[Rfam]
RNA sequence: CUCCCCGAAAUGCAUUUAGGUGCAGCGUCCCGUGCUGCCCGGCGGAGGUAGAGCUACUGGGUGGCUGAUGGGCCCCACAGGGUUACUGACGUCAGCCAAACUCCGAAUGCCGUCGGGUGCAGCGGGGCAGUGAGACCGCGGGGGAUAAGCUCCGUGGUCGAGAGGGAAACAGCCCAGAUCGCCGGCUAAGGCCCCUAAGCGUGUGCUAAGUGGGAAAGGAUGUGCGGUCGCGCAGACAACCAGGAGGUUGGCUUAGAAGCAGCCACCCUUGAAAGAGUGCGUAAUAGCUCACUGGUCAAGUGAUCGUGCGCCGACAAUGUAGCGGGGCUCAAGCACACCGCCGAAGCCGCGGGCCUGCCACGUGUUCCUUCCGGGGGGCUUGACCCCCCUUGGCAGGGGUGGCAGGUGGUAGGGGAGCGUCCCGCACCGGCAGAAGCCUCGGGGUGACCCAGGGGUGGACGGUGCGGGAGUGAGAAU
Numbered sequence: 001c002u003c004c005c006c007g008a009a010a011u012g013c014a015u016u017u018a019g020g021u022g023c024a025g026c027g028u029c030c031c032g033u034g035c036u037g038c039c040c041g042g043c044g045g046a047g048g049u050a051g052a053g054c055u056a057c058u059g060g061g062u063g064g065c066u067g068a069u070g071g072g073c074c075c076c077a078c079a080g081g082g083u084u085a086c087u088g089a090c091g092u093c094a095g096c097c098a099a100a101c102u103c104c105g106a107a108u109g110c111c112g113u114c115g116g117g118u119g120c121a122g123c124g125g126g127g128c129a130g131u132g133a134g135a136c137c138g139c140g141g142g143g144g145a146u147a148a149g150c151u152c153c154g155u156g157g158u159c160g161a162g163a164g165g166g167a168a169a170c171a172g173c174c175c176a177g178a179u180c181g182c183c184g185g186c187u188a189a190g191g192c193c194c195c196u197a198a199g200c201g202u203g204u205g206c207u208a209a210g211u212g213g214g215a216a217a218g219g220a221u222g223u224g225c226g227g228u229c230g231c232g233c234a235g236a237c238a239a240c241c242a243g244g245a246g247g248u249u250g251g252c253u254u255a256g257a258a259g260c261a262g263c264c265a266c267c268c269u270u271g272a273a274a275g276a277g278u279g280c281g282u283a284a285u286a287g288c289u290c291a292c293u294g295g296u297c298a299a300g301u302g303a304u305c306g307u308g309c310g311c312c313g314a315c316a317a318u319g320u321a322g323c324g325g326g327g328c329u330c331a332a333g334c335a336c337a338c339c340g341c342c343g344a345a346g347c348c349g350c351g352g353g354c355c356u357g358c359c360a361c362g363u364g365u366u367c368c369u370u371c372c373g374g375g376g377g378g379c380u381u382g383a384c385c386c387c388c389c390u391u392g393g394c395a396g397g398g399g400u401g402g403c404a405g406g407u408g409g410u411a412g413g414g415g416a417g418c419g420u421c422c423c424g425c426a427c428c429g430g431c432a433g434a435a436g437c438c439u440c441g442g443g444g445u446g447a448c449c450c451a452g453g454g455g456u457g458g459a460c461g462g463u464g465c466g467g468g469a470g471u472g473a474g475a476a477u
Stems, first nucleotide, its partner, number of pairs: 001417006011024005026130001027128007036121001037118009051104001052102002058098003062094004070086001071084005134159010164175003179352004184348003190342003199339001201338006218312002222309010239296005245269003250264003270274001275290001279288002353407008418472001420469010436456005441450003